Rfam assigns this 306-nucleotide RNA from Cotesia congregata to the family "Nuclear RNase P".
Clan: RNaseP clan.
A search with the family's covariance model found it, with a score of 136 bits.
RNA sequence: GCAGUGUCAAUCUAGCAGUUGGGGUUUACAAGCUAGGCACAAAAAAUGUUGCCAUCAAUUAAAAAGAACCUCGGGAAGGUCUGAGACAAGAUCGAUUAACACUCUAGCAGGGUGAUGUUGUAAUGGCAUGCACGAGAACCAGAAAUAGUUUGAUUAUUGCCUUUCUGCCGGGGAUACUCAUUUUCUUUUAGAAAAGAGUGGAGGCGGCGAUCGUCAAAUUGGAAACUCGUGUGAUCCGCUAUUUAAGUUUAAUCUGCAAGCCGGUACUUUAAGUCCGGAACUCAAUUCAGACUAAUCUGAUGCUGC
Numbered sequence: 001g002c003a004g005u006g007u008c009a010a011u012c013u014a015g016c017a018g019u020u021g022g023g024g025u026u027u028a029c030a031a032g033c034u035a036g037g038c039a040c041a042a043a044a045a046a047u048g049u050u051g052c053c054a055u056c057a058a059u060u061a062a063a064a065a066g067a068a069c070c071u072c073g074g075g076a077a078g079g080u081c082u083g084a085g086a087c088a089a090g091a092u093c094g095a096u097u098a099a100c101a102c103u104c105u106a107g108c109a110g111g112g113u114g115a116u117g118u119u120g121u122a123a124u125g126g127c128a129u130g131c132a133c134g135a136g137a138a139c140c141a142g143a144a145a146u147a148g149u150u151u152g153a154u155u156a157u158u159g160c161c162u163u164u165c166u167g168c169c170g171g172g173g174a175u176a177c178u179c180a181u182u183u184u185c186u187u188u189u190a191g192a193a194a195a196g197a198g199u200g201g202a203g204g205c206g207g208c209g210a211u212c213g214u215c216a217a218a219u220u221g222g223a224a225a226c227u228c229g230u231g232u233g234a235u236c237c238g239c240u241a242u243u244u245a246a247g248u249u250u251a252a253u254c255u256g257c258a259a260g261c262c263g264g265u266a267c268u269u270u271a272a273g274u275c276c277g278g279a280a281c282u283c284a285a286u287u288c289a290g291a292c293u294a295a296u297c298u299g300a301u302g303c304u305g306c
Stems, first nucleotide, its partner, number of pairs: 001306004007300003012260002015257004021072005036053004040048001081290005090236004100114005115129005130232007149218005261278004